[Rfam]
RNA sequence: ACCCCGGCCCUUUUCAGGGCCACCCAAAUGUCUAAGAAAGAGCUGU
Numbered sequence: 001a002c003c004c005c006g007g008c009c010c011u012u013u014u015c016a017g018g019g020c021c022a023c024c025c026a027a028a029u030g031u032c033u034a035a036g037a038a039a040g041a042g043c044u045g046u
Stems, first nucleotide, its partner, number of pairs: 006021006
The family of this 46-nucleotide sequence from Branchiostoma floridae is "Histone 3' UTR stem-loop".
Taxonomically the source falls in Branchiostoma (Eukaryota, Metazoa, Bilateria, Leptocardii).
Rfam's curators put it in the seed alignment.
By type it is a cis-regulatory element.
The mRNAs of metazoan histone genes lack a poly-A tail. 3' end processing occurs at a site between a highly conserved stem-loop (modelled by this family) and a purine rich region around 20 nts downstream (the histone downstream element, or HDE). The stem-loop is bound by a 31 kDa stem-loop binding protein (SLBP - also termed the histone hairpin binding protein, or HBP).